ZMP/ZTP riboswitch aptamer (pfl RNA motif): an 86-nucleotide RNA from Arthrobacter woluwensis. NCBI's taxonomy places the organism under Bacteria, Bacillati, Actinomycetota, Micrococcaceae, Arthrobacter. On this family, see Jones and Ferre-D'Amare, Nat Struct Mol Biol 2015: "Recognition of the bacterial alarmone ZMP through long-distance association of two RNA subdomains".
RNA sequence: UAGUGCCGUCGCAACUGGCGUCGGAUGGGUCACCAUCAGGGAGCGGCACAGUCGAAGACCACGGAUCGUCCGCCUGGGCCGAGGGU
Numbered sequence: 001u002a003g004u005g006c007c008g009u010c011g012c013a014a015c016u017g018g019c020g021u022c023g024g025a026u027g028g029g030u031c032a033c034c035a036u037c038a039g040g041g042a043g044c045g046g047c048a049c050a051g052u053c054g055a056a057g058a059c060c061a062c063g064g065a066u067c068g069u070c071c072g073c074c075u076g077g078g079c080c081g082a083g084g085g086u
Base pairs, nucleotide, nucleotide: 003052004051008047009046010045011044012043015040016039017074018073019072020071025036026035027034028033062081063080064079066078067077